Background
Rfam assigns this 190-nucleotide RNA from Caenorhabditis bovis to the family "Small nucleolar RNA U3".
RNA sequence: GAGACCAUACUAUACAGAAUCAUUUCUGUAGUGUGUAUCUCGUUAUUCCCAUUAAUCUGGUAGAGAUGCCAACUGCGAUGAAUGGGAGACGGGCAGGCCGCGAGCGUGAAGCAGCACUUUGUGUGCUUGAUGACCGCGUGGAGCCAAUUAGCCAUUUUUGGAGCCACAGUGGCCUGCUCAUCUGAGCAGU
Numbered sequence: 001g002a003g004a005c006c007a008u009a010c011u012a013u014a015c016a017g018a019a020u021c022a023u024u025u026c027u028g029u030a031g032u033g034u035g036u037a038u039c040u041c042g043u044u045a046u047u048c049c050c051a052u053u054a055a056u057c058u059g060g061u062a063g064a065g066a067u068g069c070c071a072a073c074u075g076c077g078a079u080g081a082a083u084g085g086g087a088g089a090c091g092g093g094c095a096g097g098c099c100g101c102g103a104g105c106g107u108g109a110a111g112c113a114g115c116a117c118u119u120u121g122u123g124u125g126c127u128u129g130a131u132g133a134c135c136g137c138g139u140g141g142a143g144c145c146a147a148u149u150a151g152c153c154a155u156u157u158u159u160g161g162a163g164c165c166a167c168a169g170u171g172g173c174c175u176g177c178u179c180a181u182c183u184g185a186g187c188a189g190u
Stems, first nucleotide, its partner, number of pairs: 001041004006035006015028005047062001049060003072190005091179011104137003114126004138167004144161003
Its Rfam clan is "U3 clan". The literature on the family includes a 1997 paper in Nucleic Acids Res by Zwieb, "The uRNA database". Pairs were carried over by alignment from the consensus structure, which is taken from published work. About the family: Small nucleolar RNAs (snoRNAs) are involved in the processing and modification of rRNA in the nucleolus. There are two main classes of snoRNAs: the box C/D class, and the box H/ACA class. U3 snoRNA is a member of the box C/D class. Indeed, the box C/D element is a subset of the six short sequence elements found in all U3 snoRNAs, namely boxes A, A', B, C, C', and D. The U3 snoRNA secondary structure is characterised by a small 5' domain (with boxes A and A'), and a larger 3' domain (with boxes B, C, C', and D), the two domains being linked by a single-stranded hinge. Boxes B and C form the B/C motif, which appears to be exclusive to U3 snoRNAs, and boxes C' and D form the C'/D motif. The latter is functionally similar to the C/D motifs found in other snoRNAs. The 5' domain and the hinge region act as a pre-rRNA-binding domain. The 3' domain has conserved protein-binding sites. Both the box B/C and box C'/D motifs are sufficient for nuclear retention of U3 snoRNA. The box C'/D motif is also necessary for nucleolar localisation, stability and hyper-methylation of U3 snoRNA. Both box B/C and C'/D motifs are involved in specific protein interactions and are necessary for the rRNA processing functions of U3 snoRNA.